[Rfam]
RNA sequence: GCAUUGCAUUGAUGAAUUAUGAAUUUUCGCAUGUCAGACUUCAGAGAUGCCUUUGGUGUCAAUGAGAAGUCAUGUCAUAUGACUGAGCAAUGA
Number, nucleotide and partner (000 for none) at each position: 001g000002c092003a091004u090005u089006g088007c087008a000009u000010u000011g000012a000013u000014g000015a000016a000017u000018u000019a000020u000021g000022a000023a000024u000025u000026u000027u000028c000029g000030c000031a000032u000033g000034u000035c000036a000037g000038a000039c000040u000041u000042c000043a000044g000045a000046g060047a059048u058049g057050c000051c000052u000053u000054u000055g000056g000057u049058g048059u047060c046061a000062a000063u000064g000065a000066g000067a000068a000069g000070u000071c000072a000073u000074g000075u000076c000077a000078u000079a000080u000081g000082a000083c000084u000085g000086a000087g007088c006089a005090a004091u003092g002093a000